A member of the RNA family "Plant signal recognition particle RNA" from Volvox carteri, 287 nucleotides long.
RNA sequence: GCUGGGGGAUGUCGCGGUCUCCUGUCACCCGAGCGGGGGCUGACACGUGGAAGUUCUUGAUGAUUUCGUCGGUCCAGAUAUCACCUGCGUCGAUGGCAUGUCCGCUCUGAGCCUACAGUCGACAACGGCCCAUCCCUGACGGGAGGUGGUCGUGGUUGAUGAUUAAUCCGGAAACGCGUGAGGCAGUAACCUGAGCAGCGAAAACGGGUAGCUGCGGGCGGCAGACGGAUUGCAUACUUUAGGUGGCUGGGCCACCCGGCGAGUCCUCUCAGAGGCAACCAACUGUU
Numbered sequence: 001g002c003u004g005g006g007g008g009a010u011g012u013c014g015c016g017g018u019c020u021c022c023u024g025u026c027a028c029c030c031g032a033g034c035g036g037g038g039g040c041u042g043a044c045a046c047g048u049g050g051a052a053g054u055u056c057u058u059g060a061u062g063a064u065u066u067c068g069u070c071g072g073u074c075c076a077g078a079u080a081u082c083a084c085c086u087g088c089g090u091c092g093a094u095g096g097c098a099u100g101u102c103c104g105c106u107c108u109g110a111g112c113c114u115a116c117a118g119u120c121g122a123c124a125a126c127g128g129c130c131c132a133u134c135c136c137u138g139a140c141g142g143g144a145g146g147u148g149g150u151c152g153u154g155g156u157u158g159a160u161g162a163u164u165a166a167u168c169c170g171g172a173a174a175c176g177c178g179u180g181a182g183g184c185a186g187u188a189a190c191c192u193g194a195g196c197a198g199c200g201a202a203a204a205c206g207g208g209u210a211g212c213u214g215c216g217g218g219c220g221g222c223a224g225a226c227g228g229a230u231u232g233c234a235u236a237c238u239u240u241a242g243g244u245g246g247c248u249g250g251g252c253c254a255c256c257c258g259g260c261g262a263g264u265c266c267u268c269u270c271a272g273a274g275g276c277a278a279c280c281a282a283c284u285g286u287u
Stems, first nucleotide, its partner, number of pairs: 001040003004023007028037003042287004048281003053276002055273003059268002062265002065263003069259002071253007082245003086242001093240001095238002098235004102228002106225004111219004116214004120158004125153005131148004136143002159164001166209005177200003184193003
The organism belongs to Volvox carteri, within Eukaryota.